A member of the RNA family "ArcZ RNA" from Rouxiella badensis, 106 nucleotides long. Its family is annotated with protein binding and regulation of translation in the Gene Ontology. NCBI's taxonomy places the organism under Bacteria, Pseudomonadota, Gammaproteobacteria, Yersiniaceae, Rouxiella. This RNA was discovered in E. coli during a large scale screen. SraH expression is highly abundant in stationary phase, but low levels could be detected in exponentially growing cells as well. ArcZ RNA function as an activator of the alternative sigma factor RpoS as a response of stress. The family's RNA type in Rfam is small RNA. Pairs were carried over by alignment from the consensus structure, which was predicted with PFOLD. The match comes from Rfam's covariance-model search (72 bits).

RNA sequence: CUUCUACUGAAUUACCAAGACCUGCGAUUAAUACCCUAAGUAAAACAAUACGUGGGUUAACAAUUUCCCUGGUGUUGGCGCAGUAUUCGCGCACCCCGGCCUAGGC
Numbered sequence: 001c002u003u004c005u006a007c008u009g010a011a012u013u014a015c016c017a018a019g020a021c022c023u024g025c026g027a028u029u030a031a032u033a034c035c036c037u038a039a040g041u042a043a044a045a046c047a048a049u050a051c052g053u054g055g056g057u058u059a060a061c062a063a064u065u066u067c068c069c070u071g072g073u074g075u076u077g078g079c080g081c082a083g084u085a086u087u088c089g090c091g092c093a094c095c096c097c098g099g100c101c102u103a104g105g106c
Stems, first nucleotide, its partner, number of pairs: 019058008071095003078092004